The record is a 133-nucleotide RNA sequence from Podarcis lilfordi, which matches "Small nucleolar RNA SNORA33" in Rfam. Its family is annotated with RNA processing and nucleolus in the Gene Ontology. Pairs were carried over by alignment from the consensus structure, which was predicted with PFOLD. ACA33 is a member of the H/ACA class of snoRNA that guide the sites of modification of uridines to pseudouridines. The family's RNA type in Rfam is H/ACA-box small nucleolar RNA. Taxonomically the source falls in Podarcis (Eukaryota, Chordata, Vertebrata, Lacertidae).
[Rfam]
Nucleotides: 133
Stems, first nucleotide, its partner, number of pairs: 003064005018045005074126004086113007094105003
Number, partner (000 for none) and nucleotide at each position: 001000c002000u003064g004063c005062c006061a007060g008000c009000u010000g011000g012000a013000u014000a015000a016000a017000a018045u019044c020043u021042g022041c023000u024000u025000a026000a027000c028000u029000u030000u031000c032000a033000a034000g035000u036000g037000u038000u039000c040000u041022g042021c043020a044019g045018a046000a047000a048000u049000g050000c051000a052000a053000a054000c055000u056000a057000u058000u059000g060007c061006u062005g063004g064003c065000a066000g067000u068000a069000a070000u071000a072000a073000a074126g075125c076124c077123a078000g079000g080000g081000u082000a083000c084000g085000a086113g087112c088111c089110u090109u091108g092107a093000a094105g095104a096103c097000u098000a099000g100000g101000u102000a103096g104095u105094c106000a107092u108091u109090g110089a111088g112087g113086u114000c115000c116000c117000a118000a119000u120000a121000a122000a123077u124076g125075g126074c127000u128000a129000c130000a131000u132000u133000u